Rfam assigns this 137-nucleotide RNA sequence from Parafrankia soli to the family "Group II catalytic intron D1-D4-4". Its family is annotated with Group II intron splicing in the Gene Ontology. From the family's description: Group II introns are found in rRNA, tRNA and mRNA of organelles in fungi, plants and protists, and also in mRNA in bacteria. The match comes from Rfam's covariance-model search (102 bits). The base pairs follow the family's consensus structure. The source organism's lineage runs through Bacteria, Actinomycetota, Actinomycetes, Frankiales and Parafrankia.
[Rfam]
RNA sequence: UUGCCGGUGGAAGUCCGGUCCGGGUAACUGCCAGGAGGCCCGGUAGCAGGCUGGCGGCUUCGUCUGGAAACGGGCGGGGUCGAAGCCCAGCGUCGAAGGCCCUGUGAGGGGGAGCAACAGUGCGGUCCGUAGCAUAA
Numbered sequence: 001u002u003g004c005c006g007g008u009g010g011a012a013g014u015c016c017g018g019u020c021c022g023g024g025u026a027a028c029u030g031c032c033a034g035g036a037g038g039c040c041c042g043g044u045a046g047c048a049g050g051c052u053g054g055c056g057g058c059u060u061c062g063u064c065u066g067g068a069a070a071c072g073g074g075c076g077g078g079g080u081c082g083a084a085g086c087c088c089a090g091c092g093u094c095g096a097a098g099g100c101c102c103u104g105u106g107a108g109g110g111g112g113a114g115c116a117a118c119a120g121u122g123c124g125g126u127c128c129g130u131a132g133c134a135u136a137a
Stems, first nucleotide, its partner, number of pairs: 020043005050091005055082006064073001066071001100112004114130002